mir-729 microRNA precursor family: an 85-nucleotide sequence from Onychostoma macrolepis.
[Rfam]
Nucleotides: 085
Base pairs, nucleotide, nucleotide: 001085002084003083005081006080007079012075014073015072017070018069019068020067021066022065023064024063025062026061027060028059029058031056032055033054035052036051037048
Number, partner (000 for none) and nucleotide at each position: 001085g002084c003083c004000a005081u006080c007079c008000a009000u010000u011000g012075a013000c014073c015072c016000g017070g018069g019068g020067u021066u022065g023064u024063a025062u026061u027060g028059u029058a030000a031056c032055c033054a034000a035052g036051c037048u038000a039000u040000a041000u042000a043000u044000c045000u046000g047000a048037g049000u050000u051036g052035c053000a054033u055032g056031g057000g058029u059028a060027u061026g062025a063024u064023a065022c066021g067020a068019c069018c070017u071000g072015g073014g074000u075012u076000a077000c078000a079007g080006g081005a082000a083003g084002g085001u
It scores 75 bits against the family's covariance model. The family's consensus secondary structure was predicted with RNAalifold.